[Rfam]
RNA sequence: ACUGGACAAAAUUAAAAUGCUCUUCUGUCAGUGUAAUAGUUCAUAUGGGCACUGACAGGAGAGCGUUUUGACUUUGUCAAGU
Numbered sequence: 001a002c003u004g005g006a007c008a009a010a011a012u013u014a015a016a017a018u019g020c021u022c023u024u025c026u027g028u029c030a031g032u033g034u035a036a037u038a039g040u041u042c043a044u045a046u047g048g049g050c051a052c053u054g055a056c057a058g059g060a061g062a063g064c065g066u067u068u069u070g071a072c073u074u075u076g077u078c079a080a081g082u
Stems, first nucleotide, its partner, number of pairs: 001082003005078006012071019032051003036046003